[Rfam]
RNA sequence: UGCUUCACCCUAAAUAUUGUUCGUAUAUCCUUAAGAAUAAGGCUUAAGGGUUUCUACAAGGAGCCGUAAAUUCCUGACUACGAAUAUUGGAUCUGUUAAG
Numbered sequence: 001u002g003c004u005u006c007a008c009c010c011u012a013a014a015u016a017u018u019g020u021u022c023g024u025a026u027a028u029c030c031u032u033a034a035g036a037a038u039a040a041g042g043c044u045u046a047a048g049g050g051u052u053u054c055u056a057c058a059a060g061g062a063g064c065c066g067u068a069a070a071u072u073c074c075u076g077a078c079u080a081c082g083a084a085u086a087u088u089g090g091a092u093c094u095g096u097u098a099a100g
Stems, first nucleotide, its partner, number of pairs: 018086008029049007059075005
A member of the RNA family "Purine riboswitch aptamer" from Paenibacillus psychroresistens, 100 nucleotides long. The family's consensus secondary structure is taken from published work. NCBI's taxonomy places the organism under Bacteria, Bacillati, Bacillota, Caryophanales, Paenibacillus. From the family's description: Riboswitches are metabolite binding domains within certain messenger RNAs that serve as precision sensors for their corresponding targets.